[Rfam]
RNA sequence: AUUCCUGUAUCGCUGAAUUCUGCAAGAACAGAAACGGGGGAACCAUCGAGACUGGCAUUAUUGUUAAGCCAGAACGUAUCCAGUCUCAGGGGUGAAUUGCUCGCAAGUGGAGCAUAGGGCUACUUCAAAGCCCGAAUCCGACAGCUAACCUCGUAAGCGUACUGAAGAGGAACU
Numbered sequence: 001a002u003u004c005c006u007g008u009a010u011c012g013c014u015g016a017a018u019u020c021u022g023c024a025a026g027a028a029c030a031g032a033a034a035c036g037g038g039g040g041a042a043c044c045a046u047c048g049a050g051a052c053u054g055g056c057a058u059u060a061u062u063g064u065u066a067a068g069c070c071a072g073a074a075c076g077u078a079u080c081c082a083g084u085c086u087c088a089g090g091g092g093u094g095a096a097u098u099g100c101u102c103g104c105a106a107g108u109g110g111a112g113c114a115u116a117g118g119g120c121u122a123c124u125u126c127a128a129a130g131c132c133c134g135a136a137u138c139c140g141a142c143a144g145c146u147a148a149c150c151u152c153g154u155a156a157g158c159g160u161a162c163u164g165a166a167g168a169g170g171a172a173c174u
Base pairs, nucleotide, nucleotide: 011159012158013157014156018033019032020031021030022029034154035153036152037151038150039149044089090139091138092137098114099113100112101111117133118132119131120130
The family of this 174-nucleotide RNA from Paenibacillus curdlanolyticus is "c-di-AMP riboswitch aptamer (ydaO/yuaA leader)".
Lineage of the source: Bacteria > Bacillati > Bacillota > Paenibacillaceae > Paenibacillus curdlanolyticus.